A member of the RNA family "mir-399 microRNA precursor family" from Centaurea solstitialis, 85 nucleotides long. Its family is annotated with miRNA-mediated post-transcriptional gene silencing and RISC complex in the Gene Ontology. From the family's description: mir-399 was identified in both Arabidopsis thaliana and Oryza sativa computationally and was later experimentally verified. mir-399 is thought to target mRNAs coding for a phosphatase transporter. Lineage of the source: Eukaryota > Mesangiospermae > eudicotyledons > Pentapetalae > Centaurea. For this family Rfam cites "Computational Identification of Plant MicroRNAs and Their Targets, Including a Stress-Induced miRNA" (Jones-Rhoades and Bartel, Mol Cell, 2004). A search with the family's covariance model found it, with a score of 65 bits.

RNA sequence: AAAUGCAUUACUGGGUAAUUACUCCUUCGGCAGUCAGGGCACUCGCUCUCUCACUGCCAAGGGAGAUUUGCCCAGCAAUUCAUUU
Numbered sequence: 001a002a003a004u005g006c007a008u009u010a011c012u013g014g015g016u017a018a019u020u021a022c023u024c025c026u027u028c029g030g031c032a033g034u035c036a037g038g039g040c041a042c043u044c045g046c047u048c049u050c051u052c053a054c055u056g057c058c059a060a061g062g063g064a065g066a067u068u069u070g071c072c073c074a075g076c077a078a079u080u081c082a083u084u085u
Base pairs, nucleotide, nucleotide: 005081007079008078009077011075012074013073014072015071016070017069018068022065023064024063025062029058030057031056032055033054034053036051037050038049039048